[Rfam]
RNA sequence: GCUUUGAUUACCACCAUCGGUUCGAUGGUGGGUUAGCGCGCGUCCGGACAUCGCUACUUAAACCCGCCACGAGGCGGGUUUU
Numbered sequence: 001g002c003u004u005u006g007a008u009u010a011c012c013a014c015c016a017u018c019g020g021u022u023c024g025a026u027g028g029u030g031g032g033u034u035a036g037c038g039c040g041c042g043u044c045c046g047g048a049c050a051u052c053g054c055u056a057c058u059u060a061a062a063c064c065c066g067c068c069a070c071g072a073g074g075c076g077g078g079u080u081u082u
Base pairs, nucleotide, nucleotide: 011031012030013029014028015027016026017025060081061080062079063078064077065076066075067074068073
RNA: Pseudomonas sRNA P9
Organism: Bordetella sp. N